[Rfam]
RNA: Small nucleolar RNA R30/Z108
Organism: Coptis chinensis
RNA sequence: AUAGAUUGCGAUGAGGAUAAAAAGCUCCCUCUUCUGAAAUGAAGUUUGUGGAAAAUCGCUGGCAGAAUCGAACCAAUUCAAUAUAGCCACUACUGAGCAA
Numbered sequence: 001a002u003a004g005a006u007u008g009c010g011a012u013g014a015g016g017a018u019a020a021a022a023a024g025c026u027c028c029c030u031c032u033u034c035u036g037a038a039a040u041g042a043a044g045u046u047u048g049u050g051g052a053a054a055a056u057c058g059c060u061g062g063c064a065g066a067a068u069c070g071a072a073c074c075a076a077u078u079c080a081a082u083a084u085a086g087c088c089a090c091u092a093c094u095g096a097g098c099a100a
Stems, first nucleotide, its partner, number of pairs: 006100004